[Rfam]
RNA sequence: CAGGCCGAGAGGCGCUGCAACGGACCACCGGGUCCGCCACGCUCGGCCGGGAUUGACCAACCAAGGGCGCCUCCCGACC
Numbered sequence: 001c002a003g004g005c006c007g008a009g010a011g012g013c014g015c016u017g018c019a020a021c022g023g024a025c026c027a028c029c030g031g032g033u034c035c036g037c038c039a040c041g042c043u044c045g046g047c048c049g050g051g052a053u054u055g056a057c058c059a060a061c062c063a064a065g066g067g068c069g070c071c072u073c074c075c076g077a078c079c
Base pairs, nucleotide, nucleotide: 003048004047005046006045007044008043021036022035023034024033025032026031
SAH (S-adenosyl-L-homocysteine) riboswitch aptamer: a 79-nucleotide RNA sequence from Amycolatopsis sp. SID8362. The base pairs follow the family's consensus structure, which is taken from published work. Gene Ontology terms of the family: regulation of gene expression and S-adenosylhomocysteine metabolic process. Taxonomically the source falls in Amycolatopsis (Bacteria, Bacillati, Actinomycetota, Pseudonocardiaceae). A reference for the family is Wang et al. (2008), "Riboswitches that sense S-adenosylhomocysteine and activate genes involved in coenzyme recycling", Mol Cell.